The record is a 65-nucleotide RNA sequence from Anolis carolinensis, which matches "mir-375 microRNA precursor family" in Rfam.
NCBI's taxonomy places the organism under Eukaryota, Opisthokonta, Gnathostomata, Sauria, Anolis.
RNA sequence: CCUCGCGUCGAGCCCCACGCACAAGACCUGACGUGAAUGUUUUGUUCGUUCGGCUCGCGUUAGGC
Numbered sequence: 001c002c003u004c005g006c007g008u009c010g011a012g013c014c015c016c017a018c019g020c021a022c023a024a025g026a027c028c029u030g031a032c033g034u035g036a037a038u039g040u041u042u043u044g045u046u047c048g049u050u051c052g053g054c055u056c057g058c059g060u061u062a063g064g065c
Base pairs, nucleotide, nucleotide: 001064002063003062005060006059007058009057010056011055012054013053014052018048019047021045022044023043024042026040027039